[Rfam]
RNA sequence: GGCCUGGUGCUUACCCCAAGCUGUGUUCUUACACUGACUGUUUAGAAUGAGGAGGUAGAGUAAACCCCCAUGUACACCUCAGCCCAGGCCCUGUGCCUCUGUAUUGUGAAUGGGGCACAUUG
Numbered sequence: 001g002g003c004c005u006g007g008u009g010c011u012u013a014c015c016c017c018a019a020g021c022u023g024u025g026u027u028c029u030u031a032c033a034c035u036g037a038c039u040g041u042u043u044a045g046a047a048u049g050a051g052g053a054g055g056u057a058g059a060g061u062a063a064a065c066c067c068c069c070a071u072g073u074a075c076a077c078c079u080c081a082g083c084c085c086a087g088g089c090c091c092u093g094u095g096c097c098u099c100u101g102u103a104u105u106g107u108g109a110a111u112g113g114g115g116c117a118c119a120u121u122g
Base pairs, nucleotide, nucleotide: 003052004051005050017040018039023034024033025032026031066115067114068113069112070111071110080101081100082099087097088096089095
Small nucleolar RNA SNORA51: a 122-nucleotide sequence from Callithrix jacchus. The family's RNA type in Rfam is H/ACA-box small nucleolar RNA. ACA51 is a member of the H/ACA class of snoRNA that guide the sites of modification of uridines to pseudouridines. The family has 9 seed sequences and 2,121 matches in Rfam 15.1. NCBI's taxonomy places the organism under Eukaryota, Metazoa, Sarcopterygii, Cebidae, Callithrix.